RNA sequence: GGCCGUAGUAAGGGGAUUUUUUGGUGUGACUAGUCGCCUAUUCGUCAUUACGCUUGCGUAGCCAAUGCGCAAAUAUCGCAACGAGACAAC
Numbered sequence: 001g002g003c004c005g006u007a008g009u010a011a012g013g014g015g016a017u018u019u020u021u022u023g024g025u026g027u028g029a030c031u032a033g034u035c036g037c038c039u040a041u042u043c044g045u046c047a048u049u050a051c052g053c054u055u056g057c058g059u060a061g062c063c064a065a066u067g068c069g070c071a072a073a074u075a076u077c078g079c080a081a082c083g084a085g086a087c088a089a090c
Stems, first nucleotide, its partner, number of pairs: 008087002026037004048081002051078002056070003
Source information: Fst antitoxin sRNA: a 90-nucleotide sequence from Staphylococcus sp. 693-2. From the family's description: It is located on the opposite strand of SprA1 sRNA. It is annotated as an antitoxin RNA. The family's consensus secondary structure was predicted with RNAalifold.